[Rfam]
RNA sequence: AAGCCUUAAACCUAUGAGUAAGGAGUGAUGACCAGAUGCUCACUGCUAAUGUGAGAUGAACUUUUGAGCAGAUAAAGGUUGCCCCUAAGGUGACCCUCCUACUUUGUGGGAUGCCUAGGUACUGCAAUCUGCAUA
Numbered sequence: 001a002a003g004c005c006u007u008a009a010a011c012c013u014a015u016g017a018g019u020a021a022g023g024a025g026u027g028a029u030g031a032c033c034a035g036a037u038g039c040u041c042a043c044u045g046c047u048a049a050u051g052u053g054a055g056a057u058g059a060a061c062u063u064u065u066g067a068g069c070a071g072a073u074a075a076a077g078g079u080u081g082c083c084c085c086u087a088a089g090g091u092g093a094c095c096c097u098c099c100u101a102c103u104u105u106g107u108g109g110g111a112u113g114c115c116u117a118g119g120u121a122c123u124g125c126a127a128u129c130u131g132c133a134u135a
Base pairs, nucleotide, nucleotide: 004023005022006021007020008019033038039055040054041053042052043051070134073131076130077129078128079127080126081125082124085119086118088116089115090114091113092112094110095109096108098106
Dot-bracket structure: ...(((((..........))))).........(....)(((((.......)))))..............(..(..(((((((..((.(((((.(((.(.......).))).))))).))....))))))))..).